Nucleotides: 103
Stems, first nucleotide, its partner, number of pairs: 003103002006101002
Number, partner (000 for none) and nucleotide at each position: 001000g002000a003103g004102g005000g006101u007100g008000c009000g010000a011000u012000g013000a014000u015000u016000g017000g018000a019000a020000c021000a022000a023000u024000u025000c026000c027000u028000c029000g030000u031000a032000c033000c034000a035000g036000a037000a038000g039000g040000c041000a042000a043000u044000a045000g046000c047000u048000c049000u050000a051000a052000g053000c054000u055000u056000u057000g058000c059000c060000a061000u062000g063000g064000u065000g066000u067000g068000g069000a070000c071000a072000a073000u074000c075000u076000u077000u078000a079000c080000a081000u082000a083000c084000a085000c086000c087000c088000a089000u090000a091000g092000a093000a094000u095000a096000u097000g098000a099000g100007c101006a102004c103003u

Shown here is a 103-nucleotide RNA from Adiantum capillus-veneris, a member of the family "Small nucleolar RNA snoR8a". The family's consensus secondary structure was predicted with WAR. A reference for the family is Brown et al. (2001), "Multiple snoRNA gene clusters from Arabidopsis", RNA. The family has 7 seed sequences and 956 matches in Rfam 15.1. Its family is annotated with RNA processing and nucleolus in the Gene Ontology.